[Rfam]
RNA sequence: AUUUACCACUAGGGGUGCAUCCUGCUGAGACAGACAUUUGUCUGAUCCCUUCGAACCUGAUCUGGUUGAUACCAGCGUAGGAAAGUGGAACGUGAAUUCU
Numbered sequence: 001a002u003u004u005a006c007c008a009c010u011a012g013g014g015g016u017g018c019a020u021c022c023u024g025c026u027g028a029g030a031c032a033g034a035c036a037u038u039u040g041u042c043u044g045a046u047c048c049c050u051u052c053g054a055a056c057c058u059g060a061u062c063u064g065g066u067u068g069a070u071a072c073c074a075g076c077g078u079a080g081g082a083a084a085g086u087g088g089a090a091c092g093u094g095a096a097u098u099c100u
Stems, first nucleotide, its partner, number of pairs: 006088005011050004016044001017025003032043004056081004062075004
Rfam assigns this 100-nucleotide RNA from Alkalicoccus daliensis to the family "TPP riboswitch aptamer (THI element)".
About the family: Vitamin B(1) in its active form thiamin pyrophosphate (TPP) is an essential coenzyme that is synthesised by coupling of pyrimidine and thiazole moieties in bacteria.
Gene Ontology term of the family: thiamine pyrophosphate binding.